[Rfam]
RNA sequence: GCAUAACUGAAUACUGUGUCCUUUAACCAGUACUUUGCACAGCCAGACACCAUGCAAAAGUAAAGUCUUCCUUUUAAAUGAGUGAUGAUACACUAGUUGUUGUUGGUAUGUCAUUAUUAAAAGUGAGCACAGUA
Numbered sequence: 001g002c003a004u005a006a007c008u009g010a011a012u013a014c015u016g017u018g019u020c021c022u023u024u025a026a027c028c029a030g031u032a033c034u035u036u037g038c039a040c041a042g043c044c045a046g047a048c049a050c051c052a053u054g055c056a057a058a059a060g061u062a063a064a065g066u067c068u069u070c071c072u073u074u075u076a077a078a079u080g081a082g083u084g085a086u087g088a089u090a091c092a093c094u095a096g097u098u099g100u101u102g103u104u105g106g107u108a109u110g111u112c113a114u115u116a117u118u119a120a121a122a123g124u125g126a127g128c129a130c131a132g133u134a
Base pairs, nucleotide, nucleotide: 001055002054003053004052014042015041016040017039018038019037068127069126070125071123072122073121074120075119076118077117083116084115085114086113087112088111089110090109092107093106094105095104